[Rfam]
RNA sequence: CCCGCCACUGUACCUGCCUUGUAAUGCAGUGAUAGUACAGUCCAGAGGUGAGCUGAUAGUAAAUGCCAACCUAGGAAACAGAGUUAUUCUUGUGGGUAACUUUGUGCCGAAGGCUGGGAACAGGA
Numbered sequence: 001c002c003c004g005c006c007a008c009u010g011u012a013c014c015u016g017c018c019u020u021g022u023a024a025u026g027c028a029g030u031g032a033u034a035g036u037a038c039a040g041u042c043c044a045g046a047g048g049u050g051a052g053c054u055g056a057u058a059g060u061a062a063a064u065g066c067c068a069a070c071c072u073a074g075g076a077a078a079c080a081g082a083g084u085u086a087u088u089c090u091u092g093u094g095g096g097u098a099a100c101u102u103u104g105u106g107c108c109g110a111a112g113g114c115u116g117g118g119a120a121c122a123g124g125a
Base pairs, nucleotide, nucleotide: 005048006047008045009044010043018035019034022031023030064118066116068115070113071112072111074108075107079104080103081102082101083100084099087096088095089094
This 125-nucleotide RNA sequence from Anser cygnoides belongs to the Rfam family "Small nucleolar RNA SNORA65".
Rfam classes the family as an H/ACA-box small nucleolar RNA.
The family's consensus secondary structure was predicted with RNAalifold.
A reference for the family is Huttenhofer et al. (2001), "RNomics: an experimental approach that identifies 201 candidates for novel, small, non-messenger RNAs in mouse", EMBO J.
U65 belongs to the H/ACA class of snoRNAs which are thought to guide the sites of modification of uridines to pseudouridines.